[Rfam]
mir-221 microRNA precursor family: an 85-nucleotide sequence from Denticeps clupeoides.
RNA sequence: AAGGUGCUGAACCUGGCAUACAGUGUAGAAAUCUGUGUGGUUUAAAGCUACAGCUACAUUGUCUGCUGGGUUUCAGCGACUCUGC
Numbered sequence: 001a002a003g004g005u006g007c008u009g010a011a012c013c014u015g016g017c018a019u020a021c022a023g024u025g026u027a028g029a030a031a032u033c034u035g036u037g038u039g040g041u042u043u044a045a046a047g048c049u050a051c052a053g054c055u056a057c058a059u060u061g062u063c064u065g066c067u068g069g070g071u072u073u074c075a076g077c078g079a080c081u082c083u084g085c
Base pairs, nucleotide, nucleotide: 013069014068015067016066017065018064020062021061022060023059024058025057026056027055028054033053034052035051036050

Gene Ontology terms of the family: RISC complex and miRNA-mediated post-transcriptional gene silencing. Taxonomically the source falls in Denticeps (Eukaryota, Vertebrata, Euteleostomi, Denticipitidae).